[Rfam]
RNA sequence: CUCUGGUGCAUUGUAGUUGCAUUGCACGUCUGCCGUCACCGUGCAGUGUGUCCGCUCUGCAACGGAG
Numbered sequence: 001c002u003c004u005g006g007u008g009c010a011u012u013g014u015a016g017u018u019g020c021a022u023u024g025c026a027c028g029u030c031u032g033c034c035g036u037c038a039c040c041g042u043g044c045a046g047u048g049u050g051u052c053c054g055c056u057c058u059g060c061a062a063c064g065g066a067g
Stems, first nucleotide, its partner, number of pairs: 001067004006063001007061004013055002016052001019049001021047007
RNA: mir-33 microRNA precursor family
Organism: Muraenolepis orangiensis